[Rfam]
Mammalian CPEB3 ribozyme: a 75-nucleotide RNA sequence from Alligator sinensis.
Lineage of the source: Eukaryota > Deuterostomia > Vertebrata > Dipnotetrapodomorpha > Alligator.
RNA sequence: AACUGCCAUAAUGACCAUAGCAGAAGUGCUCGCAUCGUGGCCCUGUCAGAUUUUACCGAAUCUGCAAAUUCUGCU
Dot-bracket structure: ............[.[[..((((((((((.......)))]].]....(((((((....)))))))....)))))))